[Rfam]
RNA sequence: CCAGGUCCCGACGCUAUCCCCCCCCCGGCGCCGGGAUCUUCCCAGCCGGGCUUCGGCGCCCAUCCCCCCCGGGCGCCGGGGCCCGGCUCUCUU
Dot-bracket structure: ....((((((.(((.............))).))))))......(((((((((.((((((((.........)))))))).))))))))).....